[Rfam]
RNA sequence: UUCUUAUCCAGAAAGACCGAGGGACUUGACCCGAUGACGUCUUGGCAACCUCCGCUUAGCGGGAAGGUGCCACCUUCAACCAUUCACCUGUGGCGAAUGGAAAGAUAAGUU
Numbered sequence: 001u002u003c004u005u006a007u008c009c010a011g012a013a014a015g016a017c018c019g020a021g022g023g024a025c026u027u028g029a030c031c032c033g034a035u036g037a038c039g040u041c042u043u044g045g046c047a048a049c050c051u052c053c054g055c056u057u058a059g060c061g062g063g064a065a066g067g068u069g070c071c072a073c074c075u076u077c078a079a080c081c082a083u084u085c086a087c088c089u090g091u092g093g094c095g096a097a098u099g100g101a102a103a104g105a106u107a108a109g110u111u
Stems, first nucleotide, its partner, number of pairs: 003109006013043005021032003026079004044071004049067002051063004075103001080100006
The record is a 111-nucleotide sequence from Niabella ginsenosidivorans, which matches "SAM riboswitch aptamer (S box leader)" in Rfam. Lineage of the source: Bacteria > Chitinophagia > Chitinophagales > Chitinophagaceae > Niabella. A search with the family's covariance model found it, with a score of 80 bits.